[Rfam]
RNA sequence: AACUGUCAAUGAUGAUCAUGUUUAUAAAACAUUGGGAAUCUCUCUGAUUAAGAGUGAAAGAGAUCUUUUGAACUGAUGCAGUG
Numbered sequence: 001a002a003c004u005g006u007c008a009a010u011g012a013u014g015a016u017c018a019u020g021u022u023u024a025u026a027a028a029a030c031a032u033u034g035g036g037a038a039u040c041u042c043u044c045u046g047a048u049u050a051a052g053a054g055u056g057a058a059a060g061a062g063a064u065c066u067u068u069u070g071a072a073c074u075g076a077u078g079c080a081g082u083g
Stems, first nucleotide, its partner, number of pairs: 002082005